[Rfam]
RNA sequence: CCCUUGCAUUAAGAGUUGGGAAUUCCAUGCCAACCUGCUGUUCAAAAAGAGCAGUAAGGUGGACGGUUUAAAAUAAACCGAUGUGGCUCACAAGAGCAAUCCAAACCCGCUUAA
Number, nucleotide and partner (000 for none) at each position: 001c000002c000003c000004u000005u000006g084007c083008a082009u081010u080011a000012a000013g000014a000015g028016u000017u027018g026019g025020g024021a000022a000023u000024u020025c019026c018027a017028u015029g000030c062031c061032a000033a000034c059035c058036u057037g055038c054039u053040g052041u051042u050043c049044a000045a000046a000047a000048a000049g043050a042051g041052c040053a039054g038055u037056a000057a036058g035059g034060u000061g031062g030063a000064c000065g000066g000067u000068u000069u000070a000071a000072a000073a000074u000075a000076a000077a000078c000079c000080g010081a009082u008083g007084u006085g000086g097087c096088u095089c094090a000091c000092a000093a000094g089095a088096g087097c086098a000099a000100u000101c000102c000103a000104a000105a000106c000107c000108c000109g000110c000111u000112u000113a000114a000

The family of this 114-nucleotide sequence from Kingella negevensis is "SAM-I/IV (S-adenosyl methionine) riboswitch aptamer". It scores 48 bits against the family's covariance model. Lineage of the source: Bacteria > Betaproteobacteria > Neisseriales > Neisseriaceae > Kingella.